[Rfam]
RNA sequence: GCAGGCUUAACCCCGCAUUAAGCUUUCCGAUCUAUUACUGGGGACGGUCCAGUUUUGGCCGCGAGUGGCUUCUGUCCACUCUGUUUGACGCAUCCCUGUCUAUGACUCAUCGAGCCGCCUUACGGGCGGCUCUUUUUUC
Numbered sequence: 001g002c003a004g005g006c007u008u009a010a011c012c013c014c015g016c017a018u019u020a021a022g023c024u025u026u027c028c029g030a031u032c033u034a035u036u037a038c039u040g041g042g043g044a045c046g047g048u049c050c051a052g053u054u055u056u057g058g059c060c061g062c063g064a065g066u067g068g069c070u071u072c073u074g075u076c077c078a079c080u081c082u083g084u085u086u087g088a089c090g091c092a093u094c095c096c097u098g099u100c101u102a103u104g105a106c107u108c109a110u111c112g113a114g115c116c117g118c119c120u121u122a123c124g125g126g127c128g129g130c131u132c133u134u135u136u137u138u139c
Stems, first nucleotide, its partner, number of pairs: 002040002004013002015035001019034002022031001024029001047060001049058002063081006087100004112132009
Shown here is a 139-nucleotide sequence from Ancylobacter novellus, a member of the family "Alphaproteobacterial sRNA BjrC1505". Rfam's curators put it in the seed alignment. For this family Rfam cites "Small RNAs of the Bradyrhizobium/Rhodopseudomonas lineage and their analysis" (Madhugiri et al., RNA Biol, 2012). The base pairs follow the family's consensus structure.